Nucleotides: 068
Stems, first nucleotide, its partner, number of pairs: 006063002009060001027046001030041001
Number, partner (000 for none) and nucleotide at each position: 001000c002000u003000g004000g005000c006063a007062u008000u009060a010000u011000g012000a013000g014000g015000a016000a017000u018000a019000c020000c021000u022000a023000g024000u025000u026000a027046u028000a029000u030041c031000c032000g033000a034000u035000c036000c037000a038000u039000c040000u041030g042000a043000u044000g045000a046027g047000a048000a049000a050000u051000a052000c053000c054000u055000c056000c057000u058000a059000c060009u061000c062007a063006u064000u065000c066000u067000g068000a
The family of this 68-nucleotide RNA from Digitaria exilis is "Small nucleolar RNA Z105". The family's consensus secondary structure was predicted with CMfinder.